[Rfam]
RNA sequence: UGAUUACGGGUAUUCUCGGGUUAAUAAUACAGUUAAUUGAUGUUAUUGCUUGAGAAUACACGUAGUGAC
Numbered sequence: 001u002g003a004u005u006a007c008g009g010g011u012a013u014u015c016u017c018g019g020g021u022u023a024a025u026a027a028u029a030c031a032g033u034u035a036a037u038u039g040a041u042g043u044u045a046u047u048g049c050u051u052g053a054g055a056a057u058a059c060a061c062g063u064a065g066u067g068a069c
Base pairs, nucleotide, nucleotide: 001068003066006063007062008061010059011058012057013056014055015054016053017052018051019050020049021048023047024046025045026044027043028042029041030039031038
The record is a 69-nucleotide sequence from Patiria miniata, which matches "mir-137 microRNA precursor family" in Rfam. The source organism's lineage runs through Eukaryota, Asteroidea, Valvatacea, Asterinidae and Patiria. Rfam links the family to the GO terms RISC complex and miRNA-mediated post-transcriptional gene silencing. Rfam 15.1 lists 1,138 matches to the family in 797 species. The base pairs follow the family's consensus structure, which was predicted with RNAalifold. A reference for the family is Ruby et al. (2007), "Evolution, biogenesis, expression, and target predictions of a substantially expanded set of Drosophila microRNAs", Genome Res.